Source information
The record is a 131-nucleotide RNA from Finegoldia magna, which matches "Streptococcus sRNA SpR18" in Rfam. The family's consensus secondary structure was predicted with mfold. NCBI's taxonomy places the organism under Bacteria, Tissierellia, Tissierellales, Peptoniphilaceae, Finegoldia magna. Rfam's curators put it in the seed alignment.
[Rfam]
RNA sequence: AUUACAAGCUAUAUAGAGAAUAAAAUAUGGCUACUGGUACUCAAAUGGUACUGGAAGUAAAAAAGAAUAAAUUAAAUAAUAGUUCCAAGUGGUUUACAUUUGGACAAAAAAAGACCGUAGUUUUAAGCUGC
Numbered sequence: 001a002u003u004a005c006a007a008g009c010u011a012u013a014u015a016g017a018g019a020a021u022a023a024a025a026u027a028u029g030g031c032u033a034c035u036g037g038u039a040c041u042c043a044a045a046u047g048g049u050a051c052u053g054g055a056a057g058u059a060a061a062a063a064a065g066a067a068u069a070a071a072u073u074a075a076a077u078a079a080u081a082g083u084u085c086c087a088a089g090u091g092g093u094u095u096a097c098a099u100u101u102g103g104a105c106a107a108a109a110a111a112a113g114a115c116c117g118u119a120g121u122u123u124u125a126a127g128c129u130g131c
Stems, first nucleotide, its partner, number of pairs: 007032008039124001045118004053068001082105002085103007